[Rfam]
RNA sequence: CUUUUAUCGAGAGAAGUGGAGGGACUGGCCCGACGAUACUUCAGCAACCCCGCAUUGCGGAAGGUGCUAAAUCCAUCAGAUGCAAAUCUGGAAGAUAAAAC
Numbered sequence: 001c002u003u004u005u006a007u008c009g010a011g012a013g014a015a016g017u018g019g020a021g022g023g024a025c026u027g028g029c030c031c032g033a034c035g036a037u038a039c040u041u042c043a044g045c046a047a048c049c050c051c052g053c054a055u056u057g058c059g060g061a062a063g064g065u066g067c068u069a070a071a072u073c074c075a076u077c078a079g080a081u082g083c084a085a086a087u088c089u090g091g092a093a094g095a096u097a098a099a100a101c
Base pairs, nucleotide, nucleotide: 002100003099004098005097006096007095008094013042014041015040016039017038021031022030023029026075027074028073043068044067045066046065048064049063050060051059052058053057072093077090078089079088080087081086
The family of this 101-nucleotide RNA from Sporolactobacillus laevolacticus is "SAM riboswitch aptamer (S box leader)". Taxonomically the source falls in Sporolactobacillus laevolacticus (Bacteria, Bacillati, Bacillota, Sporolactobacillus). The SAM riboswitch is found upstream of a number of genes which code for proteins involved in methionine or cysteine biosynthesis in Gram-positive bacteria. The SAM riboswitch acts at the level of transcription termination control. The predicted structure consists of a complex stem-loop region followed by a single stem loop terminator region. An alternative and mutually exclusive form involves bases in the 3' segment of helix 1 with those in the 5' region of helix 5 to form a structure termed the anti-terminator form. Rfam links the family to the GO term regulation of gene expression. The base pairs follow the family's consensus structure, which is taken from published work.